[Rfam]
Overview
Shown here is a 114-nucleotide RNA from Pseudocoprococcus catus, a member of the family "FMN riboswitch aptamer (RFN element)". Lineage of the source: Bacteria > Bacillati > Bacillota > Lachnospirales > Pseudocoprococcus. It scores 115 bits against the family's covariance model. The family's consensus secondary structure is taken from published work. On this family, see Winkler et al., Proc Natl Acad Sci U S A 2002: "An mRNA structure that controls gene expression by binding FMN".
RNA sequence: UAGAAUCUUCAGGGCAGGGUGCAAGUCCCUACCGGUGGUAAAGCCCACGAGCCGCAAGGUUGAUUCGGUGCGAGUCCGAAGCCGACAGUAUAGUCUGGAUGAAAGAAGAUAAAU
Numbered sequence: 001u002a003g004a005a006u007c008u009u010c011a012g013g014g015c016a017g018g019g020u021g022c023a024a025g026u027c028c029c030u031a032c033c034g035g036u037g038g039u040a041a042a043g044c045c046c047a048c049g050a051g052c053c054g055c056a057a058g059g060u061u062g063a064u065u066c067g068g069u070g071c072g073a074g075u076c077c078g079a080a081g082c083c084g085a086c087a088g089u090a091u092a093g094u095c096u097g098g099a100u101g102a103a104a105g106a107a108g109a110u111a112a113a114u
Stems, first nucleotide, its partner, number of pairs: 005110006017029003031094002033084002035048004043082002051060003064080005086097003